[Rfam]
RNA sequence: CGGAGCGUUUCUCUGACUGAUGUGAUAACAGUUAUCAGUCAUUGAAGUGAUCUCGU
Numbered sequence: 001c002g003g004a005g006c007g008u009u010u011c012u013c014u015g016a017c018u019g020a021u022g023u024g025a026u027a028a029c030a031g032u033u034a035u036c037a038g039u040c041a042u043u044g045a046a047g048u049g050a051u052c053u054c055g056u
Base pairs, nucleotide, nucleotide: 002053003052004051006049007048008047009046010045011044014041015040016039017038018037019036020035021034022033
RNA: mir-7927 microRNA precursor family
Organism: Panagrellus redivivus